Notes:
A member of the RNA family "ssnA RNA", 48 nucleotides long. Rfam classes the family as a cis-regulatory element.

[Rfam]
RNA sequence: AGAUUGAUAGCUGUAACGAAGUGCUGCGCGCACGGGCUUAACGACUAU
Numbered sequence: 001a002g003a004u005u006g007a008u009a010g011c012u013g014u015a016a017c018g019a020a021g022u023g024c025u026g027c028g029c030g031c032a033c034g035g036g037c038u039u040a041a042c043g044a045c046u047a048u
Stems, first nucleotide, its partner, number of pairs: 009038004021033004
Rfam's curators put it in the seed alignment.